[Rfam]
RNA sequence: GGGUAAGGACGACCUUGCCCGGCUUUUUUCUUGCGGGGACGACCCCG
Numbered sequence: 001g002g003g004u005a006a007g008g009a010c011g012a013c014c015u016u017g018c019c020c021g022g023c024u025u026u027u028u029u030c031u032u033g034c035g036g037g038g039a040c041g042a043c044c045c046c047g
Base pairs, nucleotide, nucleotide: 001020002019003018004017005016006015007014008013034047035046036045037044038043

This 47-nucleotide RNA sequence from Ramlibacter tataouinensis belongs to the Rfam family "Guanidine-II riboswitch aptamer (mini-ykkC)". About the family: Simpler in structure and has fewer highly conserved nucleotide positions than the ykkC-yxkD leader. Despite this each of its two stem-loop structures directly bind free guanidine. The match comes from Rfam's covariance-model search (46 bits). The source organism's lineage runs through Bacteria, Pseudomonadati, Betaproteobacteria, Comamonadaceae and Ramlibacter.